RNA sequence: GUUAGGUCCGGGAUGAAUCCUAAUCUGGUUAGACAUCUAUGGGUGAGAAAUGUGGAUGUGGGACUGAGACCAGCU
Number, nucleotide and partner (000 for none) at each position: 001g074002u073003u072004a000005g071006g070007u000008c000009c000010g000011g000012g000013a000014u000015g000016a000017a000018u000019c000020c000021u000022a000023a000024u000025c000026u000027g000028g000029u000030u000031a000032g000033a000034c000035a000036u000037c000038u000039a000040u000041g000042g000043g000044u000045g000046a000047g000048a000049a000050a000051u000052g000053u000054g000055g000056a000057u000058g000059u000060g000061g000062g000063a000064c000065u000066g000067a000068g000069a000070c006071c005072a003073g002074c001075u000
The record is a 75-nucleotide RNA from Nannospalax galili, which matches "Small nucleolar RNA SNORD99" in Rfam. By type it is a C/D-box small nucleolar RNA. On this family, see Huttenhofer et al., EMBO J 2001: "RNomics: an experimental approach that identifies 201 candidates for novel, small, non-messenger RNAs in mouse".